A member of the RNA family "Small nucleolar RNA SNORA31" from Prolemur simus, 129 nucleotides long.
Pairs were carried over by alignment from the consensus structure, which was predicted with RNAalifold.
It is annotated as an H/ACA-box small nucleolar RNA.
The match comes from Rfam's covariance-model search (40 bits).
On this family, see Huttenhofer et al., EMBO J 2001: "RNomics: an experimental approach that identifies 201 candidates for novel, small, non-messenger RNAs in mouse".
About the family: ACA31 (SNORA31) belongs to the H/ACA class of snoRNAs which are thought to guide the sites of modification of uridines to pseudouridines. ACA31 is predicted to guide the pseudouridylation of U3713 in 28S rRNA and U218 in 18S rRNA. This family includes the mouse homologue snoMBI-161.
RNA sequence: AUGCAUCUCUGACAGAUCUGGAACAGUACUGUCCGCUGCUAAGGUGUACAUUACAGAUGCAAGAAAAAAGUGGCCUCCUGCUUUCUCUGUCUGACUGUGGCAGCCAAGAUUGAAUAGAGGAAUGCAGGG
Number, nucleotide and partner (000 for none) at each position: 001a000002u061003g060004c059005a058006u057007c056008u055009c000010u050011g049012a000013c000014a047015g000016a045017u044018c043019u000020g000021g000022a000023a000024c038025a037026g036027u035028a000029c000030u000031g000032u000033c000034c000035g027036c026037u025038g024039c000040u000041a000042a000043g018044g017045u016046g000047u014048a000049c011050a010051u000052u000053a000054c000055a008056g007057a006058u005059g004060c003061a002062a000063g000064a000065a000066a000067a000068a000069a000070g000071u000072g000073g000074c120075c119076u118077c117078c000079u000080g000081c112082u000083u000084u109085c108086u107087c103088u102089g101090u100091c099092u000093g000094a000095c000096u000097g000098u000099g091100g090101c089102a088103g087104c000105c000106a000107a086108g085109a084110u000111u000112g081113a000114a000115u000116a000117g077118a076119g075120g074121a000122a000123u000124g000125c000126a000127g000128g000129g000